[Rfam]
RNA sequence: GGGAUAUGAUGAAUGGUAAAAACUCGCUUAUAUUGCGAGAAGAGCGUUCCGCCCAAAGCCUGUUACGACUAUUGGGCAGCUCUCUUUUUUACACAAUCUGAUCCC
Number, nucleotide and partner (000 for none) at each position: 001g105002g104003g103004a102005u000006a000007u000008g000009a000010u000011g000012a000013a000014u096015g000016g094017u093018a000019a000020a000021a000022a000023c039024u038025c037026g036027c035028u000029u000030a000031u000032a000033u000034u000035g027036c026037g025038a024039g023040a000041a083042g082043a081044g080045c079046g077047u076048u075049c000050c000051g000052c000053c000054c000055a000056a000057a000058g000059c000060c074061u000062g072063u071064u000065a000066c000067g000068a000069c000070u000071a063072u062073u000074g060075g048076g047077c046078a000079g045080c044081u043082c042083u041084c000085u000086u000087u000088u000089u000090u000091a000092c000093a017094c016095a000096a014097u000098c000099u000100g000101a000102u004103c003104c002105c001
This 105-nucleotide RNA sequence belongs to the Rfam family "Small nucleolar RNA Z279/snoR105/snoR108". Its Rfam clan is "snoU13 clan". The literature on the family includes a 2002 paper in Curr Biol by Marker et al., "Experimental RNomics: identification of 140 candidates for small non-messenger RNAs in the plant Arabidopsis thaliana". This family includes the plant snoRNAs known as Z279, snoR105 and snoR108. Rfam links the family to the GO terms nucleolus and RNA processing. Pairs were carried over by alignment from the consensus structure, which was predicted with PFOLD.